[Rfam]
RNA: Plastid-atpF group II-D1 intron
Organism: Dendrobium nobile
RNA sequence: GGGAAUUUAUUCGAUGUAGAACACUCAUAUGGAUAAAAUUAUUUGAACCAUUC
Numbered sequence: 001g002g003g004a005a006u007u008u009a010u011u012c013g014a015u016g017u018a019g020a021a022c023a024c025u026c027a028u029a030u031g032g033a034u035a036a037a038a039u040u041a042u043u044u045g046a047a048c049c050a051u052u053c
Base pairs, nucleotide, nucleotide: 011033012032014030015029016028017027